[Rfam]
RNA sequence: AGGCUGUCAUGGCUUUUAGUGGGAUCGAAUACUUUGGGAUAUUUGACAGGGGAACGAAACUUCCUCACAGUCGGACAUGGAUAUUGCACGUCUCGUCGUUGGCGAGUCAAAGGGUGGGAUUUUAUCUCGUUCUGCGCCAUGUUCUGUUGCUUCAACCGUCUUCCAAUUGCCGUCUUUUAGGGCUUGUCCGGGGGUGUUCUCUCCUUAUGGGGGGACCACCUCUGAGGUGGUUGGGCUCUGAGUUAACGUGUCCUGGUUUUCAAUCAAUCGAUCUUUGCGGGUUGCUCGUUGAUGGUGACAUGAGAAAUCUGUCCUUUCCAUCCGACGCGGUAAUGUAAAUUGGUCUUUGACCUCGCUUUCACCGCCAUUAGGGGAGUUUCAUCCAGCGAUGGCAAAAGUGACCCGUGAUGGAGGCGACCGGGAUGGCACUGUUCUUAGGGCAAAUGUACAAGUUUGGGUCAACCCUGGGGUUAAUAUUUCAGGGUUACUUUAAUUGGACGGUGUUGCCAGAUAUUUCCUGCCUUUAAUGGACCGUUUGGGAAGUGUUCUUAGGAACCACUAUAUU
Numbered sequence: 001a002g003g004c005u006g007u008c009a010u011g012g013c014u015u016u017u018a019g020u021g022g023g024a025u026c027g028a029a030u031a032c033u034u035u036g037g038g039a040u041a042u043u044u045g046a047c048a049g050g051g052g053a054a055c056g057a058a059a060c061u062u063c064c065u066c067a068c069a070g071u072c073g074g075a076c077a078u079g080g081a082u083a084u085u086g087c088a089c090g091u092c093u094c095g096u097c098g099u100u101g102g103c104g105a106g107u108c109a110a111a112g113g114g115u116g117g118g119a120u121u122u123u124a125u126c127u128c129g130u131u132c133u134g135c136g137c138c139a140u141g142u143u144c145u146g147u148u149g150c151u152u153c154a155a156c157c158g159u160c161u162u163c164c165a166a167u168u169g170c171c172g173u174c175u176u177u178u179a180g181g182g183c184u185u186g187u188c189c190g191g192g193g194g195u196g197u198u199c200u201c202u203c204c205u206u207a208u209g210g211g212g213g214g215a216c217c218a219c220c221u222c223u224g225a226g227g228u229g230g231u232u233g234g235g236c237u238c239u240g241a242g243u244u245a246a247c248g249u250g251u252c253c254u255g256g257u258u259u260u261c262a263a264u265c266a267a268u269c270g271a272u273c274u275u276u277g278c279g280g281g282u283u284g285c286u287c288g289u290u291g292a293u294g295g296u297g298a299c300a301u302g303a304g305a306a307a308u309c310u311g312u313c314c315u316u317u318c319c320a321u322c323c324g325a326c327g328c329g330g331u332a333a334u335g336u337a338a339a340u341u342g343g344u345c346u347u348u349g350a351c352c353u354c355g356c357u358u359u360c361a362c363c364g365c366c367a368u369u370a371g372g373g374g375a376g377u378u379u380c381a382u383c384c385a386g387c388g389a390u391g392g393c394a395a396a397a398g399u400g401a402c403c404c405g406u407g408a409u410g411g412a413g414g415c416g417a418c419c420g421g422g423a424u425g426g427c428a429c430u431g432u433u434c435u436u437a438g439g440g441c442a443a444a445u446g447u448a449c450a451a452g453u454u455u456g457g458g459u460c461a462a463c464c465c466u467g468g469g470g471u472u473a474a475u476a477u478u479u480c481a482g483g484g485u486u487a488c489u490u491u492a493a494u495u496g497g498a499c500g501g502u503g504u505u506g507c508c509a510g511a512u513a514u515u516u517c518c519u520g521c522c523u524u525u526a527a528u529g530g531a532c533c534g535u536u537u538g539g540g541a542a543g544u545g546u547u548c549u550u551a552g553g554a555a556c557c558a559c560u561a562u563a564u565u
Base pairs, nucleotide, nucleotide: 001015002014003013004012017561018560019559020558021557022556027548028547029546030545031544032543033542035481036480037479038478040476041475042474198215199214200213201212202211203210204209239437240436242434245432248429249428250427251426252422253421254420255419256418257417258416272412273411274410275408276407278405279404280403281402285329287327288326289325290324291321294316295315297313298312299311300310302309303308344350345349353401354400355399356398357397358396359395364393365392366391367390368389373384374383375382
This 565-nucleotide sequence from Naumovozyma dairenensis belongs to the Rfam family "Fungal signal recognition particle RNA". Rfam classes the family as a non-coding RNA gene. The family has 50 seed sequences and 748 matches in Rfam 15.1. A search with the family's covariance model found it, with a score of 114 bits. Rfam links the family to the GO terms signal recognition particle, plasma membrane targeting, signal recognition particle, endoplasmic reticulum targeting and SRP-dependent cotranslational protein targeting to membrane, signal sequence recognition. The family is grouped with related families in Rfam's "SRP clan". Pairs were carried over by alignment from the consensus structure, which is taken from published work. Lineage of the source: Eukaryota > Opisthokonta > Dikarya > Ascomycota > Naumovozyma dairenensis.